Record summary:
The record is a 247-nucleotide RNA sequence from Branchiostoma lanceolatum, which matches "RNase MRP" in Rfam. Gene Ontology terms of the family: rRNA processing, ribonuclease MRP complex and ribonuclease MRP activity.
RNA sequence: AAGCAUCAUGAAGACUUGCGUCUGAGCGACACACUGAGAACUAGUUUCUCUCCUCUGCUUGGUGGAAAGUCCCCGGACCUAGGGUAGAAAGUACCCAGCUGUAGCGGCUGUAACCUGCCCUGAUCCUGUACCAAGGCCAAGAGGUCCCCAGGACUGAGCCAUGGAGGGGCAGGCGUUAGUCAUAGCACAGUAAUGCAAGUGGCAUCCAGCAGGAUGUUAACAGAAUGGGGCUCACUCUCAAGAUGCU
Numbered sequence: 001a002a003g004c005a006u007c008a009u010g011a012a013g014a015c016u017u018g019c020g021u022c023u024g025a026g027c028g029a030c031a032c033a034c035u036g037a038g039a040a041c042u043a044g045u046u047u048c049u050c051u052c053c054u055c056u057g058c059u060u061g062g063u064g065g066a067a068a069g070u071c072c073c074c075g076g077a078c079c080u081a082g083g084g085u086a087g088a089a090a091g092u093a094c095c096c097a098g099c100u101g102u103a104g105c106g107g108c109u110g111u112a113a114c115c116u117g118c119c120c121u122g123a124u125c126c127u128g129u130a131c132c133a134a135g136g137c138c139a140a141g142a143g144g145u146c147c148c149c150a151g152g153a154c155u156g157a158g159c160c161a162u163g164g165a166g167g168g169g170c171a172g173g174c175g176u177u178a179g180u181c182a183u184a185g186c187a188c189a190g191u192a193a194u195g196c197a198a199g200u201g202g203c204a205u206c207c208a209g210c211a212g213g214a215u216g217u218u219a220a221c222a223g224a225a226u227g228g229g230g231c232u233c234a235c236u237c238u239c240a241a242g243a244u245g246c247u
Stems, first nucleotide, its partner, number of pairs: 002247006009240003014200006022062006036050005068232002071230004083095004096110006112177002114173006124165003135160003144154004202217006
Its Rfam clan is "RNaseP clan". By type it is a ribozyme. The source organism's lineage runs through Eukaryota, Opisthokonta, Bilateria, Leptocardii and Branchiostoma. It scores 146 bits against the family's covariance model.